[Rfam]
Nucleotides: 115
Stems, first nucleotide, its partner, number of pairs: 011105001015101006024092002027089002030086007
Number, partner (000 for none) and nucleotide at each position: 001000g002000u003000u004000g005000c006000a007000g008000a009000g010000c011105c012000a013000a014000u015101u016100u017099g018098g019097c020096a021000u022000u023000c024092u025091g026000u027089c028088c029000a030086c031085c032084u033083c034082c035081a036080u037000u038000a039000a040000u041000g042000c043000u044000u045000c046000u047000c048000c049000c050000a051000a052000c053000c054000a055000g056000c057000u058000u059000a060000u061000u062000a063000a064000c065000u066000g067000a068000u069000u070000a071000c072000u073000c074000c075000u076000u077000g078000g079000a080036g081035u082034g083033g084032a085031g086030g087000c088028g089027g090000c091025c092024a093000g094000u095000a096020u097019g098018u099017c100016a101015a102000a103000c104000a105011g106000g107000u108000u109000c110000u111000g112000u113000a114000a115000a